[Rfam]
RNA: RgsA sRNA
RNA sequence: CAGCAGCGACAGUCGUAUUCCAAAUCUGUUUAAAAAACGAGCAGUGAGCGCUGGAAGCCCUUCAAUCCUGAUUAAUACUUGAAGUGUUGGCGAGGCACACCCCCCAAGUGUCGCGCCGAUAAAGGUGAUCAGGGAGUGUUCGCCUUUGUUUUACUCCUAAUGGUCUUAACCCGGAUUCCCCCCCCCAGAACCCGG
Dot-bracket structure: ......................................((.((..........................................((((.((.(.(((.........))).).)).))))(((((((((........).)))))))).............)).)).....((((.(((.........))).))))